This 153-nucleotide RNA from Cognatundibacterium oligocarboniphilum belongs to the Rfam family "Group II catalytic intron D1-D4-7". Pairs were carried over by alignment from the consensus structure. Lineage of the source: Bacteria > Pseudomonadota > Burkholderiales > Oxalobacteraceae > Cognatundibacterium. Rfam's curators write: Group II introns are found in rRNA, tRNA and mRNA of organelles in fungi, plants and protists, and also in mRNA in bacteria. Gene Ontology term of the family: Group II intron splicing.

RNA sequence: CCUGUUAUGCGACUAACAGUAGCCUACGAAGACAUGCCUAACUGGUAACGGUUACGUGUGAAGCUCUUCUAACAAUGUAUCUCCCUGUGAUUUAGGUAUGCUUAUAUCGCGAGAUGAAGCGUAGAUACUCCGAGCAGUAACGGGGUUGAGAGG
Numbered sequence: 001c002c003u004g005u006u007a008u009g010c011g012a013c014u015a016a017c018a019g020u021a022g023c024c025u026a027c028g029a030a031g032a033c034a035u036g037c038c039u040a041a042c043u044g045g046u047a048a049c050g051g052u053u054a055c056g057u058g059u060g061a062a063g064c065u066c067u068u069c070u071a072a073c074a075a076u077g078u079a080u081c082u083c084c085c086u087g088u089g090a091u092u093u094a095g096g097u098a099u100g101c102u103u104a105u106a107u108c109g110c111g112a113g114a115u116g117a118a119g120c121g122u123a124g125a126u127a128c129u130c131c132g133a134g135c136a137g138u139a140a141c142g143g144g145g146u147u148g149a150g151a152g153g
Base pairs, nucleotide, nucleotide: 002019003018004017005016006015007014028069029068030067031066032065033060034059035058036057037056039054040053041052042051043050044049082098084096085095086094087093099123100122101121107114108113127146128145129144130143131142132141